The family of this 71-nucleotide RNA from Ceutorhynchus assimilis is "mir-1175 microRNA precursor family". The match comes from Rfam's covariance-model search (76 bits). The base pairs follow the family's consensus structure, which was predicted with RNAalifold.

RNA sequence: UAGAUUAAGUGGAGCAGUGGUCUCUUCACUUUGUUUCGAUAAGUGAGAUUCAACUCCUCCAACUUAGUUUU
Numbered sequence: 001u002a003g004a005u006u007a008a009g010u011g012g013a014g015c016a017g018u019g020g021u022c023u024c025u026u027c028a029c030u031u032u033g034u035u036u037c038g039a040u041a042a043g044u045g046a047g048a049u050u051c052a053a054c055u056c057c058u059c060c061a062a063c064u065u066a067g068u069u070u071u
Stems, first nucleotide, its partner, number of pairs: 007065003010061005017055001018053001023048002026046006
Rfam links the family to the GO terms RISC complex and miRNA-mediated post-transcriptional gene silencing.